[Rfam]
RNA sequence: ACAAGAAAUAGAGGUUGCGGGAGAUCACAACGACUGUGGAGUGCCUAGACACGAUGAAACAGUCCUAAGGGUCCUCGCCGAAAUGGCUUAUUGUCAGGCAAUAAGUUGUUGGGCCACGGGUGAAUAACUCGUGGACUGUCUUAGUCAUCUGACUAAGGAGCGCUAUGAUUCUG
Numbered sequence: 001a002c003a004a005g006a007a008a009u010a011g012a013g014g015u016u017g018c019g020g021g022a023g024a025u026c027a028c029a030a031c032g033a034c035u036g037u038g039g040a041g042u043g044c045c046u047a048g049a050c051a052c053g054a055u056g057a058a059a060c061a062g063u064c065c066u067a068a069g070g071g072u073c074c075u076c077g078c079c080g081a082a083a084u085g086g087c088u089u090a091u092u093g094u095c096a097g098g099c100a101a102u103a104a105g106u107u108g109u110u111g112g113g114c115c116a117c118g119g120g121u122g123a124a125u126a127a128c129u130c131g132u133g134g135a136c137u138g139u140c141u142u143a144g145u146c147a148u149c150u151g152a153c154u155a156a157g158g159a160g161c162g163c164u165a166u167g168a169u170u171c172u173g
Stems, first nucleotide, its partner, number of pairs: 008166004017078005023072001032064006082110012111137002114134008139158007
RNA: Lysine riboswitch aptamer